Record summary
Small nucleolar RNA SNORD94: a 147-nucleotide RNA sequence from Pelodiscus sinensis. It is annotated as a C/D-box small nucleolar RNA. Gene Ontology terms of the family: RNA processing and nucleolus. The source organism's lineage runs through Eukaryota, Chordata, Tetrapoda, Testudines and Pelodiscus.

[Rfam]
RNA sequence: UUGGCAAUGAUGAUUGGCGCAGGGGUACAGACCUCAGCUAAGCCAUGGGAGCUGAAUGUGAACUCUGCUUUUUUUCCAGUGUGACAGACAUGUGGUCAGUUGCCUGGAAUCAAGUUCACAUGAAAACUUUGCCUAGCGCUGAGCCAU
Numbered sequence: 001u002u003g004g005c006a007a008u009g010a011u012g013a014u015u016g017g018c019g020c021a022g023g024g025g026u027a028c029a030g031a032c033c034u035c036a037g038c039u040a041a042g043c044c045a046u047g048g049g050a051g052c053u054g055a056a057u058g059u060g061a062a063c064u065c066u067g068c069u070u071u072u073u074u075u076c077c078a079g080u081g082u083g084a085c086a087g088a089c090a091u092g093u094g095g096u097c098a099g100u101u102g103c104c105u106g107g108a109a110u111c112a113a114g115u116u117c118a119c120a121u122g123a124a125a126a127c128u129u130u131g132c133c134u135a136g137c138g139c140u141g142a143g144c145c146a147u
Stems, first nucleotide, its partner, number of pairs: 002146004